[Rfam]
RNA sequence: CUAUGGCUUAUAAGAAGUCAUGGCGAAAGGAG
Numbered sequence: 001c002u003a004u005g006g007c008u009u010a011u012a013a014g015a016a017g018u019c020a021u022g023g024c025g026a027a028a029g030g031a032g
Base pairs, nucleotide, nucleotide: 001023002022003021004020005019006018007017008016
L31-Firmicutes ribosomal protein leader: a 32-nucleotide sequence. The family's RNA type in Rfam is cis-regulatory leader. For this family Rfam cites "Discovery of 20 novel ribosomal leader candidates in bacteria and archaea" (Eckert and Weinberg, BMC Microbiol, 2020).